[Rfam]
RNA sequence: UAGUAGUUCGAUGGAUUGAAAGAUGAAGAACGAGAGGCAGGGCACAAGCCUAGGUAAAAGGGAAGUCGAAUAUGGUGGAAGGAUAAUAACCCAUGGAGGUCGAGAGGUUCGACCUUAUCCUCGAAACGGCAAGAGAGGAGAUAGUGUUACCGCAAGGUAAGGCGUCAUGAAUGCGUAGGCAGCUCGUUUGUAACUCCCGGGAAUGAGUACAUUCCUUGUGUACGGGGCGAAGAGGGACUUGAAACAGUUGACGUACACCAUACA
Numbered sequence: 001u002a003g004u005a006g007u008u009c010g011a012u013g014g015a016u017u018g019a020a021a022g023a024u025g026a027a028g029a030a031c032g033a034g035a036g037g038c039a040g041g042g043c044a045c046a047a048g049c050c051u052a053g054g055u056a057a058a059a060g061g062g063a064a065g066u067c068g069a070a071u072a073u074g075g076u077g078g079a080a081g082g083a084u085a086a087u088a089a090c091c092c093a094u095g096g097a098g099g100u101c102g103a104g105a106g107g108u109u110c111g112a113c114c115u116u117a118u119c120c121u122c123g124a125a126a127c128g129g130c131a132a133g134a135g136a137g138g139a140g141a142u143a144g145u146g147u148u149a150c151c152g153c154a155a156g157g158u159a160a161g162g163c164g165u166c167a168u169g170a171a172u173g174c175g176u177a178g179g180c181a182g183c184u185c186g187u188u189u190g191u192a193a194c195u196c197c198c199g200g201g202a203a204u205g206a207g208u209a210c211a212u213u214c215c216u217u218g219u220g221u222a223c224g225g226g227g228c229g230a231a232g233a234g235g236g237a238c239u240u241g242a243a244a245c246a247g248u249u250g251a252c253g254u255a256c257a258c259c260a261u262a263c264a
Base pairs, nucleotide, nucleotide: 006031007030008029009028015024016023017022092169093168094167096116097115098114099113100112101111102110103109118139119138120137121136122135140166141165142164144163145162147160148159149158150157151156172181173180174179200215201214202213203212204211205210218258219257220256221255222254223253224252236249237248238247239246
The family of this 264-nucleotide RNA is "Clostridiales-3 RNA". It is one of the family's seed sequences. It is annotated as a small RNA. Pairs were carried over by alignment from the consensus structure, which is taken from published work.